[Rfam]
Source information
Shown here is a 304-nucleotide sequence from Cicer arietinum, a member of the family "Plant signal recognition particle RNA". It scores 229 bits against the family's covariance model. Pairs were carried over by alignment from the consensus structure, which is taken from published work.
RNA sequence: GCCGAGCUGAGUUACUACAGCUUGUGACCCGAGUGGGGGCAAUAGUGUGGUGGAACAUGGCUUUGGUUUACCAGGUCGGUCUGUUGGCUGCAACAAUCUGGCCUGCCCACUCCAAGUUGAGAGAUGGGCCAUGGGGUUUGGGCGGAAGGCUUGGAUCUCCUGGUCACUAGAAAGGAAGGAACCGCAUGAGGCUGGCUUCACAGAGCAGUGAAUACCUCCUGCUCUUGACAGUGGAGGGAUUACAGGCUGCUGCAUUCUCGGGCCACAUAGCCUGUUGAGCCUAGCCCAUUGAACCAUCACUUUU
Numbered sequence: 001g002c003c004g005a006g007c008u009g010a011g012u013u014a015c016u017a018c019a020g021c022u023u024g025u026g027a028c029c030c031g032a033g034u035g036g037g038g039g040c041a042a043u044a045g046u047g048u049g050g051u052g053g054a055a056c057a058u059g060g061c062u063u064u065g066g067u068u069u070a071c072c073a074g075g076u077c078g079g080u081c082u083g084u085u086g087g088c089u090g091c092a093a094c095a096a097u098c099u100g101g102c103c104u105g106c107c108c109a110c111u112c113c114a115a116g117u118u119g120a121g122a123g124a125u126g127g128g129c130c131a132u133g134g135g136g137u138u139u140g141g142g143c144g145g146a147a148g149g150c151u152u153g154g155a156u157c158u159c160c161u162g163g164u165c166a167c168u169a170g171a172a173a174g175g176a177a178g179g180a181a182c183c184g185c186a187u188g189a190g191g192c193u194g195g196c197u198u199c200a201c202a203g204a205g206c207a208g209u210g211a212a213u214a215c216c217u218c219c220u221g222c223u224c225u226u227g228a229c230a231g232u233g234g235a236g237g238g239a240u241u242a243c244a245g246g247c248u249g250c251u252g253c254a255u256u257c258u259c260g261g262g263c264c265a266c267a268u269a270g271c272c273u274g275u276u277g278a279g280c281c282u283a284g285c286c287c288a289u290u291g292a293a294c295c296a297u298c299a300c301u302u303u304u
Stems, first nucleotide, its partner, number of pairs: 001040003004023006011016001028037003044303002047300007056291002058288003061284002065280001068278003072274005078264006086256001089254002093251001099249007107238002110236005116229008127165005133159011173220004178215001185210003192203003